RNA sequence: GUGAAGUUGAUCACAAACAAACAUAUACCCCUUUGUUUGACCGUGAAAAAUUUCUCCCAUCCCCUUUGUUCGUAAAGGAAAACCCCUUGUAACCUAGUUACAAGGGGUUU
Numbered sequence: 001g002u003g004a005a006g007u008u009g010a011u012c013a014c015a016a017a018c019a020a021a022c023a024u025a026u027a028c029c030c031c032u033u034u035g036u037u038u039g040a041c042c043g044u045g046a047a048a049a050a051u052u053u054c055u056c057c058c059a060u061c062c063c064c065u066u067u068g069u070u071c072g073u074a075a076a077g078g079a080a081a082a083c084c085c086c087u088u089g090u091a092a093c094c095u096a097g098u099u100a101c102a103a104g105g106g107g108u109u110u
Stems, first nucleotide, its partner, number of pairs: 003054006011046004018039006070079001071077001083107011
About this RNA:
The record is a 110-nucleotide sequence from Bacillus coahuilensis, which matches "RNA Staph. aureus E (RoxS)" in Rfam. A reference for the family is Geissmann et al. (2009), "A search for small noncoding RNAs in Staphylococcus aureus reveals a conserved sequence motif for regulation", Nucleic Acids Res. Rfam classes the family as a small RNA. Rfam's curators write: It was shown to be regulated by the presence of nitric oxide (NO). It is one of the family's seed sequences. Gene Ontology term of the family: regulation of translational initiation.